Rfam assigns this 104-nucleotide RNA sequence from Algoriphagus machipongonensis to the family "SAM riboswitch aptamer (S box leader)". A search with the family's covariance model found it, with a score of 66 bits. Its family is annotated with regulation of gene expression in the Gene Ontology. The source organism's lineage runs through Bacteria, Bacteroidota, Cytophagia, Cyclobacteriaceae and Algoriphagus.
RNA sequence: GAUUUAUAAAGAAGAGGCGAGAGAUUAGGCUCACUGACCCUCUGGCAACCAUCCACGAUUUCGGGAAAGGUGCCAAGUCCUACCCACUGCGGGAACUAUAAACA
Numbered sequence: 001g002a003u004u005u006a007u008a009a010a011g012a013a014g015a016g017g018c019g020a021g022a023g024a025u026u027a028g029g030c031u032c033a034c035u036g037a038c039c040c041u042c043u044g045g046c047a048a049c050c051a052u053c054c055a056c057g058a059u060u061u062c063g064g065g066a067a068a069g070g071u072g073c074c075a076a077g078u079c080c081u082a083c084c085c086a087c088u089g090c091g092g093g094a095a096c097u098a099u100a101a102a103c104a
Stems, first nucleotide, its partner, number of pairs: 003102006013043005021032003026082004044074004049070002052066003083093003